Source information: The family of this 74-nucleotide RNA sequence from Ornithorhynchus anatinus is "mir-1421 microRNA precursor family". Rfam links the family to the GO terms miRNA-mediated post-transcriptional gene silencing and RISC complex. NCBI's taxonomy places the organism under Eukaryota, Chordata, Euteleostomi, Ornithorhynchidae, Ornithorhynchus. The family has 53 seed sequences and 110 matches in Rfam 15.1.
RNA sequence: CGGGGUGUGGAGGUCGCACGUCUUGCUGUAUGAUGCUGGAACACACAGCAUGGCGUGUGACCUCCGGACACAGC
Numbered sequence: 001c002g003g004g005g006u007g008u009g010g011a012g013g014u015c016g017c018a019c020g021u022c023u024u025g026c027u028g029u030a031u032g033a034u035g036c037u038g039g040a041a042c043a044c045a046c047a048g049c050a051u052g053g054c055g056u057g058u059g060a061c062c063u064c065c066g067g068a069c070a071c072a073g074c
Stems, first nucleotide, its partner, number of pairs: 003071001005069002009065013024050004
Dot-bracket structure: ..(.((..(((((((((((((..((((...................))))..)))))))))))))..)).)...